The record is a 158-nucleotide sequence from Streptosporangium subroseum, which matches "c-di-AMP riboswitch aptamer (ydaO/yuaA leader)" in Rfam. The match comes from Rfam's covariance-model search (78 bits). The source organism's lineage runs through Bacteria, Bacillati, Streptosporangiales, Streptosporangiaceae and Streptosporangium.

RNA sequence: AAGCCUGACCCGCCGAAUCCCCGAAACGCGGGGAGCCGGGGACCCACUCUCGACCACGUCCCCCCGGGGUGAAUCCGAAGUGCCUUCAACGCACCAGGUAGGGCUGCCUCCGGCCCGAACCCGUCAGCUAACCCGGUAGGCGACCGAGGAGAGGAGCC
Dot-bracket structure: ..........((((...(((((.......)))))((((((....(....................)(((.....((....................))..((((........))))...))).........)))))).))))................